Notes: This 77-nucleotide RNA sequence from Laticauda laticaudata belongs to the Rfam family "Mammalian CPEB3 ribozyme".

RNA sequence: UUAAUCUGACUGGGGGCCAUAGAAGGAGCGUUCACGUCACGGUCCCUGUCAGGUUUCGUGUUUACUGCAAUCCUUCU
Numbered sequence: 001u002u003a004a005u006c007u008g009a010c011u012g013g014g015g016g017c018c019a020u021a022g023a024a025g026g027a028g029c030g031u032u033c034a035c036g037u038c039a040c041g042g043u044c045c046c047u048g049u050c051a052g053g054u055u056u057c058g059u060g061u062u063u064a065c066u067g068c069a070a071u072c073c074u075u076c077u
Stems, first nucleotide, its partner, number of pairs: 013046006021077007028040001030038001050067003
Overview
The organism belongs to Laticauda, within Eukaryota.